Source information
The record is a 117-nucleotide RNA from Ruminococcaceae bacterium YRB3002, which matches "pemK RNA" in Rfam. The organism belongs to Oscillospiraceae, within Bacteria.

RNA sequence: ACAAUGAUACUUCUGUAUAGUCACAGGCCGAGCGUUGAAGCGAUGACCGAGCAUCGUGAGCCGUCACACCCAAUGAGUGCAGCCGGAGUAUUACUACCGGAGGUGAGAGUCCUAUGA
Numbered sequence: 001a002c003a004a005u006g007a008u009a010c011u012u013c014u015g016u017a018u019a020g021u022c023a024c025a026g027g028c029c030g031a032g033c034g035u036u037g038a039a040g041c042g043a044u045g046a047c048c049g050a051g052c053a054u055c056g057u058g059a060g061c062c063g064u065c066a067c068a069c070c071c072a073a074u075g076a077g078u079g080c081a082g083c084c085g086g087a088g089u090a091u092u093a094c095u096a097c098c099g100g101a102g103g104u105g106a107g108a109g110u111c112c113u114a115u116g117a
Base pairs, nucleotide, nucleotide: 012114013082014081015080016079017078018077083100084099085098088097089096101113102112103111